[Rfam]
RNA sequence: UACCUGGUUGAUCCUGCCAGUAGUCAUAUGCUUGUCUCAAAGAUUAAGCAAUGCAUGUGUAAGUAUGAAAAAAUUUAGAUUGUGAAACUGCGAAUGGUCAUUAAAUCAAUCAUAGUUUUUUUUUCAUGGUACCUACUACUCGAAUAAUCGUAGUAAUUCUAAAGCUAAUACAUGCAACAAACCCCGAGAUCUGGAAAGGGCACAUUUAUUAGAUAACAGGUCAACCUGGGCUCUGCCAUUGUUUAGAAGAUUCAUGAUAACUUGACGGAUCGAAAAGCCUGCCGGUGACGCAUCAUUCAAAUUUAUGCCCUAUCAACUUUUGAUGGUAGGAUAGAGGCCUACCAUGGUGGUGACGGGUGACGGAGAAUUAGGGUUCGAUUCCGGAGAGGGAGCCUGAGAAACGGCUACCACAUCCAAGGAAGGCAGCAGGCGCGCAAAUUACCCAAUCCUGACACGGGGAGGUAGUGACAAUAAAUAACAAUACCGGGCUCAUUGAGUCUGGUAAUUGGAAUGAGUACAAUCUAAACCCCUUAACGAGUACCCAUUGGAGGGCAAGUCUGGUGCCAGCACAAACCCCGAGAUCUGGAAAGGGCACAUUUA
Numbered sequence: 001u002a003c004c005u006g007g008u009u010g011a012u013c014c015u016g017c018c019a020g021u022a023g024u025c026a027u028a029u030g031c032u033u034g035u036c037u038c039a040a041a042g043a044u045u046a047a048g049c050a051a052u053g054c055a056u057g058u059g060u061a062a063g064u065a066u067g068a069a070a071a072a073a074u075u076u077a078g079a080u081u082g083u084g085a086a087a088c089u090g091c092g093a094a095u096g097g098u099c100a101u102u103a104a105a106u107c108a109a110u111c112a113u114a115g116u117u118u119u120u121u122u123u124u125c126a127u128g129g130u131a132c133c134u135a136c137u138a139c140u141c142g143a144a145u146a147a148u149c150g151u152a153g154u155a156a157u158u159c160u161a162a163a164g165c166u167a168a169u170a171c172a173u174g175c176a177a178c179a180a181a182c183c184c185c186g187a188g189a190u191c192u193g194g195a196a197a198g199g200g201c202a203c204a205u206u207u208a209u210u211a212g213a214u215a216a217c218a219g220g221u222c223a224a225c226c227u228g229g230g231c232u233c234u235g236c237c238a239u240u241g242u243u244u245a246g247a248a249g250a251u252u253c254a255u256g257a258u259a260a261c262u263u264g265a266c267g268g269a270u271c272g273a274a275a276a277g278c279c280u281g282c283c284g285g286u287g288a289c290g291c292a293u294c295a296u297u298c299a300a301a302u303u304u305a306u307g308c309c310c311u312a313u314c315a316a317c318u319u320u321u322g323a324u325g326g327u328a329g330g331a332u333a334g335a336g337g338c339c340u341a342c343c344a345u346g347g348u349g350g351u352g353a354c355g356g357g358u359g360a361c362g363g364a365g366a367a368u369u370a371g372g373g374u375u376c377g378a379u380u381c382c383g384g385a386g387a388g389g390g391a392g393c394c395u396g397a398g399a400a401a402c403g404g405c406u407a408c409c410a411c412a413u414c415c416a417a418g419g420a421a422g423g424c425a426g427c428a429g430g431c432g433c434g435c436a437a438a439u440u441a442c443c444c445a446a447u448c449c450u451g452a453c454a455c456g457g458g459g460a461g462g463u464a465g466u467g468a469c470a471a472u473a474a475a476u477a478a479c480a481a482u483a484c485c486g487g488g489c490u491c492a493u494u495g496a497g498u499c500u501g502g503u504a505a506u507u508g509g510a511a512u513g514a515g516u517a518c519a520a521u522c523u524a525a526a527c528c529c530c531u532u533a534a535c536g537a538g539u540a541c542c543c544a545u546u547g548g549a550g551g552g553c554a555a556g557u558c559u560g561g562u563g564c565c566a567g568c569a570c571a572a573a574c575c576c577c578g579a580g581a582u583c584u585g586g587a588a589a590g591g592g593c594a595c596a597u598u599u600a
Base pairs, nucleotide, nucleotide: 004020005019006018007017008016022598023597024596027594029592031590032589035473037471041466042433048431049430052428053427054426057091058090062089063088064087069083098385099384107307108306112302113301116300117299122295139174142171148164151161152160153159182200183199184198206260207259208258209257210256211255221247222246228237229236270288271287272286277282309357310356311355316348317347318346323345324344325343326342327341328340329339330338361383362382363381364380365376366375367374368373388409389408391406392405393404411422413420414419439464441463442462443461447459448458449457450456451455479508480507481506482504483503484502485501486500487499488498489497490496491495515535516534517532519531545587546585547584548583549582558580559579560576561575
RNA: Eukaryotic small subunit ribosomal RNA, nucleotides 1 to 600